[Rfam]
This 158-nucleotide RNA sequence from Escherichia coli belongs to the Rfam family "EFASI RNA".

RNA sequence: GUAGUGAGAUGCCGAACCGGCGAUACCACUUAUUAGGGGUGGUAUCGGGGGCGACCUGGAAACAGGUACAGCGAAUGCUGCUGCCGGUGUGCAACACCGGUUUGUUACCCCUCAAUACCUAAACAGUCUGCGCUACCCUGGCGCCCAGGCACUCAUUA
Numbered sequence: 001g002u003a004g005u006g007a008g009a010u011g012c013c014g015a016a017c018c019g020g021c022g023a024u025a026c027c028a029c030u031u032a033u034u035a036g037g038g039g040u041g042g043u044a045u046c047g048g049g050g051g052c053g054a055c056c057u058g059g060a061a062a063c064a065g066g067u068a069c070a071g072c073g074a075a076u077g078c079u080g081c082u083g084c085c086g087g088u089g090u091g092c093a094a095c096a097c098c099g100g101u102u103u104g105u106u107a108c109c110c111c112u113c114a115a116u117a118c119c120u121a122a123a124c125a126g127u128c129u130g131c132g133c134u135a136c137c138c139u140g141g142c143g144c145c146c147a148g149g150c151a152c153u154c155a156u157u158a
Base pairs, nucleotide, nucleotide: 002158003157004156005155008153010151011150012149013148021047022046023045024044025043026042027041028040029039030038048111049110050109051108055066056065057064058063081104083102086098087097088096089095090094
Source information
Rfam's curators put it in the seed alignment. The family's RNA type in Rfam is small RNA.